[Rfam]
The record is a 113-nucleotide sequence from Luteipulveratus mongoliensis, which matches "SAM (S-adenosyl methionine) riboswitch aptamer" in Rfam.
It scores 99 bits against the family's covariance model.
Its family is annotated with regulation of gene expression and S-adenosylmethionine metabolic process in the Gene Ontology.

RNA sequence: GGUCUUGAGUUUCAGCGCACAGCCCCGGCUUGCUGGACAGCAACCCUCCACCGCGGUGGGGUGCUCCGGGUGACGACACGGCACCGGCCACCCGGUCGGUGCAAGCGCGGACU
Numbered sequence: 001g002g003u004c005u006u007g008a009g010u011u012u013c014a015g016c017g018c019a020c021a022g023c024c025c026c027g028g029c030u031u032g033c034u035g036g037a038c039a040g041c042a043a044c045c046c047u048c049c050a051c052c053g054c055g056g057u058g059g060g061g062u063g064c065u066c067c068g069g070g071u072g073a074c075g076a077c078a079c080g081g082c083a084c085c086g087g088c089c090a091c092c093c094g095g096u097c098g099g100u101g102c103a104a105g106c107g108c109g110g111a112c113u
Stems, first nucleotide, its partner, number of pairs: 002077003009038001011037006021030002039065003044061003048056002081102009